The family of this 133-nucleotide sequence is "Small nucleolar RNA SNORA9". It is one of the family's seed sequences. Rfam classes the family as an H/ACA-box small nucleolar RNA. The family has 36 seed sequences and 1,202 matches in Rfam 15.1. Its family is annotated with nucleolus and RNA processing in the Gene Ontology.
[Rfam]
RNA sequence: UAGCAAGCCACCAGCAUGCUUGGGUCUGCAGUGACCCUGUGCAUCCCUAAAGUGCUUGCCAGAACAAUUUUGAAGUUGGUUUGAGGCCUUGCCCUGGUCUUUCCAGGGCAAGGUUAUAGAAAUUUCAGACAAU
Numbered sequence: 001u002a003g004c005a006a007g008c009c010a011c012c013a014g015c016a017u018g019c020u021u022g023g024g025u026c027u028g029c030a031g032u033g034a035c036c037c038u039g040u041g042c043a044u045c046c047c048u049a050a051a052g053u054g055c056u057u058g059c060c061a062g063a064a065c066a067a068u069u070u071u072g073a074a075g076u077u078g079g080u081u082u083g084a085g086g087c088c089u090u091g092c093c094c095u096g097g098u099c100u101u102u103c104c105a106g107g108g109c110a111a112g113g114u115u116a117u118a119g120a121a122a123u124u125u126c127a128g129a130c131a132a133u
Stems, first nucleotide, its partner, number of pairs: 003059006017043003022037005071127005087113006094106003